The family of this 96-nucleotide sequence from Xanthomonas boreopolis is "Xanthomonas sRNA sX7". The match comes from Rfam's covariance-model search (56 bits).
RNA sequence: UGUUUUCCGCUCUGGGCGAGGGACGCUGUCAGUGACGUCCCUCGCCCGGGGCACUCCGGAUGAGGCCAGGAGGACGGGCGCCAGGGAAGGCGCGCU
Numbered sequence: 001u002g003u004u005u006u007c008c009g010c011u012c013u014g015g016g017c018g019a020g021g022g023a024c025g026c027u028g029u030c031a032g033u034g035a036c037g038u039c040c041c042u043c044g045c046c047c048g049g050g051g052c053a054c055u056c057c058g059g060a061u062g063a064g065g066c067c068a069g070g071a072g073g074a075c076g077g078g079c080g081c082c083a084g085g086g087a088a089g090g091c092g093c094g095c096u
Stems, first nucleotide, its partner, number of pairs: 009052011021040005065075001067073001078093005
The source organism's lineage runs through Bacteria, Pseudomonadota, Gammaproteobacteria, Lysobacteraceae and Xanthomonas.
For this family Rfam cites "Genome-wide transcriptome analysis of the plant pathogen Xanthomonas identifies sRNAs with putative virulence functions" (Schmidtke et al., Nucleic Acids Res, 2011).